[Rfam]
Nucleotides: 290
Stems, first nucleotide, its partner, number of pairs: 007118002015113004035101006048087001059082006121186007188199003218246010251287004262283005
Number, partner (000 for none) and nucleotide at each position: 001000a002000a003000a004000a005000a006000g007118g008117c009000u010000a011000u012000g013000a014000a015113g016112g017111u018110g019000u020000u021000g022000c023000c024000a025000c026000a027000g028000g029000c030000a031000a032000c033000c034000a035101g036100a037099u038098u039097a040096a041000a042000c043000u044000u045000u046000u047000c048087u049000a050000u051000c052000a053000g054000a055000g056000a057000g058000a059082g060081g061080a062079a063078g064077u065000c066000a067000u068000c069000g070000g071000c072000u073000g074000a075000a076000a077064g078063c079062u080061u081060c082059c083000u084000u085000a086000a087048g088000u089000u090000c091000a092000a093000a094000g095000u096040u097039u098038a099037g100036u101035u102000g103000a104000u105000u106000u107000u108000c109000u110018c111017a112016c113015c114000g115000g116000a117008g118007c119000c120000g121186c122185a123184u124183a125182u126181u127180u128000g129000a130000a131000u132000u133000u134000g135000u136000u137000a138000a139000u140000c141000a142000a143000c144000c145000u146000c147000c148000a149000c150000a151000a152000a153000a154000u155000u156000a157000a158000a159000g160000u161000c162000a163000c164000a165000g166000g167000g168000u169000u170000a171000a172000c173000a174000u175000u176000a177000g178000u179000a180127g181126g182125a183124u184123a185122u186121g187000a188199c189198g190197u191000a192000u193000a194000u195000g196000c197190a198189c199188g200000u201000u202000a203000c204000g205000c206000a207000u208000g209000a210000c211000u212000u213000a214000a215000g216000u217000g218246c219245c220244u221243a222242u223241g224240a225239u226238a227237a228000u229000u230000u231000u232000u233000g234000u235000u236000u237227u238226u239225a240224u241223u242222a243221u244220a245219g246218g247000a248000a249000u250000u251287a252286g253285g254284g255000u256000g257000g258000u259000a260000c261000c262283g263282c264281g265280g266279g267000u268000a269000g270000c271000u272000u273000u274000u275000a276000u277000a278000c279266u280265c281264c282263g283262u284254c285253c286252c287251u288000g289000u290000u

Shown here is a 290-nucleotide sequence from Lachnoclostridium phytofermentans, a member of the family "T-box leader". The family has 48 seed sequences and 19,395 matches in Rfam 15.1. Rfam classes the family as a cis-regulatory leader. It scores 96 bits against the family's covariance model. On this family, see Gerdeman et al., J Mol Biol 2003: "Solution structure of the Bacillus subtilis T-box antiterminator RNA: seven nucleotide bulge characterized by stacking and flexibility".